[Rfam]
RNA sequence: AAAACUUUUAAAUUAGUCCAGAGAGGCUAGUAAGGGUAUAUAAGUACUUUUGUGCACUCGUAUGGGAUUAGGGAUGUACAGAGGUAUGGGGAAUAGUUUGUCACUAUUUGAUGAAACCCGACCUUGCUGCGCCAACAGGCAGUAAGGUUUUUUUAUU
Numbered sequence: 001a002a003a004a005c006u007u008u009u010a011a012a013u014u015a016g017u018c019c020a021g022a023g024a025g026g027c028u029a030g031u032a033a034g035g036g037u038a039u040a041u042a043a044g045u046a047c048u049u050u051u052g053u054g055c056a057c058u059c060g061u062a063u064g065g066g067a068u069u070a071g072g073g074a075u076g077u078a079c080a081g082a083g084g085u086a087u088g089g090g091g092a093a094u095a096g097u098u099u100g101u102c103a104c105u106a107u108u109u110g111a112u113g114a115a116a117c118c119c120g121a122c123c124u125u126g127c128u129g130c131g132c133c134a135a136c137a138g139g140c141a142g143u144a145a146g147g148u149u150u151u152u153u154u155a156u157u
Base pairs, nucleotide, nucleotide: 003037005035006034007033008032013030014029015028016027017026018025044087045086046085047084048083049082050081051080052079053078054077055076056075120149121148122147123146124145125144126143127142128141129140130139

A member of the RNA family "PyrR binding site" from Ruminiclostridium hungatei, 157 nucleotides long. This family represents the PyrR binding site and terminator structure. This RNA structure is found upstream of a variety of genes involved in pyrimidine biosynthesis and transport. The alignment also includes a portion of the antiterminator structure. It scores 59 bits against the family's covariance model. Rfam classes the family as a cis-regulatory element. Taxonomically the source falls in Ruminiclostridium (Bacteria, Bacillota, Clostridia, Eubacteriales). The family's consensus secondary structure is taken from published work. On this family, see Bonner et al., Nucleic Acids Res 2001: "Molecular recognition of pyr mRNA by the Bacillus subtilis attenuation regulatory protein PyrR".